[Rfam]
RNA sequence: GGGUAUGUAGCUCAGUGGAUAGAGCAUCAGAUUCCGGUUCUGAGGGUCGGGGGUUCAAAUCCCUCCAUACUCG
Dot-bracket structure: (((((((..((((........)))).(((((.......))))).....(((((.......)))))))))))).
RNA: tRNA